Shown here is a 110-nucleotide RNA from Oceanobacillus iheyensis, a member of the family "SAM riboswitch aptamer (S box leader)".
The family's consensus secondary structure is taken from published work.
Rfam links the family to the GO term regulation of gene expression.
Rfam's curators put it in the seed alignment.
[Rfam]
RNA sequence: CUCUUAUCAAGAGUGGUGGAGGGAAUAGGCCCUGCGAAGCCCGGCAACCUGUAGCAAUUGCUAUUGAAAGGUGCUAAAUCCUACAGACUUCAUCGUCUGGAAGAUAAGAG
Numbered sequence: 001c002u003c004u005u006a007u008c009a010a011g012a013g014u015g016g017u018g019g020a021g022g023g024a025a026u027a028g029g030c031c032c033u034g035c036g037a038a039g040c041c042c043g044g045c046a047a048c049c050u051g052u053a054g055c056a057a058u059u060g061c062u063a064u065u066g067a068a069a070g071g072u073g074c075u076a077a078a079u080c081c082u083a084c085a086g087a088c089u090u091c092a093u094c095g096u097c098u099g100g101a102a103g104a105u106a107a108g109a110g
Stems, first nucleotide, its partner, number of pairs: 001110008013042001015041003021032003026083004043075004048071002050067001053064001079102001084099005
Dot-bracket structure: ((((((((....(.(((...(((..[[[[)))......))))((((.(((..(..........)..)..))))))...(]]]](((((......)))))..)))))))))